[Rfam]
RNA sequence: GGGGCUCUGCAGCUCCAGGCUGUCUGUCCAGACCCUCAAAGGUCUGGAGAGCAGUGUCUCAUCCCCAAGCCGAGAGCAUGGGGUGUGCUGAUUUAAAAACAGAAAAUGCAAAGUUGGACUGAAAAUAUCCUUAGUCUUCCAAGCAAUCUGCUUAAGGGUUCCAAAGUUACCUUCGUUUGGUGAGCGAGGAGGCUGCCCUAUUUUCCCCCCUUUCUUUCCUUUCUUCUUCUUUUACCACCGGAACCAGCCAUUUCCCAAAGCCGCCACCAUG
Numbered sequence: 001g002g003g004g005c006u007c008u009g010c011a012g013c014u015c016c017a018g019g020c021u022g023u024c025u026g027u028c029c030a031g032a033c034c035c036u037c038a039a040a041g042g043u044c045u046g047g048a049g050a051g052c053a054g055u056g057u058c059u060c061a062u063c064c065c066c067a068a069g070c071c072g073a074g075a076g077c078a079u080g081g082g083g084u085g086u087g088c089u090g091a092u093u094u095a096a097a098a099a100c101a102g103a104a105a106a107u108g109c110a111a112a113g114u115u116g117g118a119c120u121g122a123a124a125a126u127a128u129c130c131u132u133a134g135u136c137u138u139c140c141a142a143g144c145a146a147u148c149u150g151c152u153u154a155a156g157g158g159u160u161c162c163a164a165a166g167u168u169a170c171c172u173u174c175g176u177u178u179g180g181u182g183a184g185c186g187a188g189g190a191g192g193c194u195g196c197c198c199u200a201u202u203u204u205c206c207c208c209c210c211u212u213u214c215u216u217u218c219c220u221u222u223c224u225u226c227u228u229c230u231u232u233u234a235c236c237a238c239c240g241g242a243a244c245c246a247g248c249c250a251u252u253u254c255c256c257a258a259a260g261c262c263g264c265c266a267c268c269a270u271g
Base pairs, nucleotide, nucleotide: 046255047254048253049252050251067228068227069226072223073222074221075220076219078201079200080199081198082197083196084195085194087193088192089191092188093187094186100150101149102148103147107145108144109143114142115141116140117139118138121136122135167183168182169181170180171179
Shown here is a 271-nucleotide RNA from Octodon degus, a member of the family "Voltage-gated potassium-channel Kv1.4 IRES". Its family is annotated with ribosome binding in the Gene Ontology. The family's consensus secondary structure was predicted with RNAalifold. NCBI's taxonomy places the organism under Eukaryota, Mammalia, Eutheria, Boreoeutheria, Octodon. On this family, see Jang et al., J Biol Chem 2004: "Structurally distinct elements mediate internal ribosome entry within the 5'-noncoding region of a voltage-gated potassium channel mRNA". From the family's description: This family represents the Kv1.4 voltage-gated potassium-channel internal ribosome entry site (IRES). This region has been shown to mediate internal ribosome entry in cells derived from brain, heart, and skeletal muscle, tissues known to express Kv1.4 mRNA species. It scores 200 bits against the family's covariance model.